[Rfam]
RNA sequence: CUGCGGGACCGGGCCCCUCUGGCGCGGCGCACUGGCACCAUCCCCCCUUCCCAGCCAGGGCGCAGCGUGAUGUCGGACCGCAUCG
Numbered sequence: 001c002u003g004c005g006g007g008a009c010c011g012g013g014c015c016c017c018u019c020u021g022g023c024g025c026g027g028c029g030c031a032c033u034g035g036c037a038c039c040a041u042c043c044c045c046c047c048u049u050c051c052c053a054g055c056c057a058g059g060g061c062g063c064a065g066c067g068u069g070a071u072g073u074c075g076g077a078c079c080g081c082a083u084c085g
Stems, first nucleotide, its partner, number of pairs: 006079002009076004022068004027063003